[Rfam]
RNA sequence: GUGAUUUUUUCAUAGUAUUAGAUUUUAAGGUUAACAGAGAUUGGGGAGUCGUGAGACUGCCCUUUUUUUAUU
Numbered sequence: 001g002u003g004a005u006u007u008u009u010u011c012a013u014a015g016u017a018u019u020a021g022a023u024u025u026u027a028a029g030g031u032u033a034a035c036a037g038a039g040a041u042u043g044g045g046g047a048g049u050c051g052u053g054a055g056a057c058u059g060c061c062c063u064u065u066u067u068u069u070a071u072u
Stems, first nucleotide, its partner, number of pairs: 044062003047058004
Rfam assigns this 72-nucleotide sequence from Microbacter margulisiae to the family "Bacteroidetes FopS (family of paralogous sRNAs)". Pairs were carried over by alignment from the consensus structure, which is taken from published work. The RNA-binding protein RbpB and BTncRNA_FopS sRNA are involved in the post-transcription regulation of polysaccharide utilisation loci (PUL). FopS sRNAs function as post-transcriptional repressors by binding to the vicinity of the start codon of the first mRNA of target PUL polycistrons, typically corresponding to the cognate SusC homolog, impeding translation of the respective glycan transporter. Rfam 15.1 lists 822 matches to the family in 178 species. By type it is a small RNA. Gene Ontology term of the family: sRNA-mediated gene silencing. Lineage of the source: Bacteria > Bacteroidota > Bacteroidia > Bacteroidales > Microbacter.